[Rfam]
RNA sequence: AGUUCUUUCGGUAUGACACAACAUUCUGCUGCAAUGUUGUGCGACCUGCAGUGUCAACCGAAAGCACA
Numbered sequence: 001a002g003u004u005c006u007u008u009c010g011g012u013a014u015g016a017c018a019c020a021a022c023a024u025u026c027u028g029c030u031g032c033a034a035u036g037u038u039g040u041g042c043g044a045c046c047u048g049c050a051g052u053g054u055c056a057a058c059c060g061a062a063a064g065c066a067c068a
Stems, first nucleotide, its partner, number of pairs: 002067002005064002009060004020038006043055003
bZIP non canonical Hac1/Xbp1 intron: a 68-nucleotide RNA from Botrytis fragariae. Rfam describes the family as follows. bZIP intron RNA is a non-canonical intron that was first reported in HAC1 gene in yeast and XBP1 gene in Metazoa. Pairs were carried over by alignment from the consensus structure, which was predicted with RNAfold. Lineage of the source: Eukaryota > Opisthokonta > Fungi > Pezizomycotina > Botrytis.